About this RNA
Rfam assigns this 133-nucleotide RNA to the family "Bacteriophage Diversity-Generating Retroelement RNA". A reference for the family is Handa et al. (2025), "RNA control of reverse transcription in a diversity-generating retroelement", Nature. By type it is a small RNA. The sequence is in the family's curated seed alignment. The base pairs follow the family's consensus structure, which is taken from published work.

RNA sequence: ACUCUGCCGGUGGUACGCCCCGGCGGGUCGGCCUUACCUUUAUUGGUGGUCAGCCGGUUUCAUCCUGCUUCGGCAAACACUCUACGCGGUUCGGGCAAGCGCAGAUUACUGAAAAUGGAAAAGCGUACCCGAC
Numbered sequence: 001a002c003u004c005u006g007c008c009g010g011u012g013g014u015a016c017g018c019c020c021c022g023g024c025g026g027g028u029c030g031g032c033c034u035u036a037c038c039u040u041u042a043u044u045g046g047u048g049g050u051c052a053g054c055c056g057g058u059u060u061c062a063u064c065c066u067g068c069u070u071c072g073g074c075a076a077a078c079a080c081u082c083u084a085c086g087c088g089g090u091u092c093g094g095g096c097a098a099g100c101g102c103a104g105a106u107u108a109c110u111g112a113a114a115a116u117g118g119a120a121a122a123g124c125g126u127a128c129c130c131g132a133c
Base pairs, nucleotide, nucleotide: 001028002027004026005025006024007023008022009021010020012019013018066075067074068073089133091132092131093130094129095128100125101124102123109117